A member of the RNA family "ASpks TB sRNA" from Mycobacterium intermedium, 75 nucleotides long. Lineage of the source: Bacteria > Bacillati > Actinomycetota > Mycobacterium > Mycobacterium simiae complex. The family's consensus secondary structure is taken from published work.

RNA sequence: CUUGAUCGAACCCAGCCACAACGGUCGAUCCGCUGCGCGGCCCUGCCCGUAGGUCGCGAGCAGGGCUUGCGCUUC
Numbered sequence: 001c002u003u004g005a006u007c008g009a010a011c012c013c014a015g016c017c018a019c020a021a022c023g024g025u026c027g028a029u030c031c032g033c034u035g036c037g038c039g040g041c042c043c044u045g046c047c048c049g050u051a052g053g054u055c056g057c058g059a060g061c062a063g064g065g066c067u068u069g070c071g072c073u074u075c
Stems, first nucleotide, its partner, number of pairs: 015025003031071003038065001043060002047056001049054001